[Rfam]
RNA sequence: AGUCAAGAGUCUUGGCGCCAUUUUGGUGAGCGGAUUUUCUUUGCCUGAAGAAAGGUGAGAGAAAAAUG
Numbered sequence: 001a002g003u004c005a006a007g008a009g010u011c012u013u014g015g016c017g018c019c020a021u022u023u024u025g026g027u028g029a030g031c032g033g034a035u036u037u038u039c040u041u042u043g044c045c046u047g048a049a050g051a052a053a054g055g056u057g058a059g060a061g062a063a064a065a066a067u068g
Stems, first nucleotide, its partner, number of pairs: 010062002012059002016057004021053004028046001030044005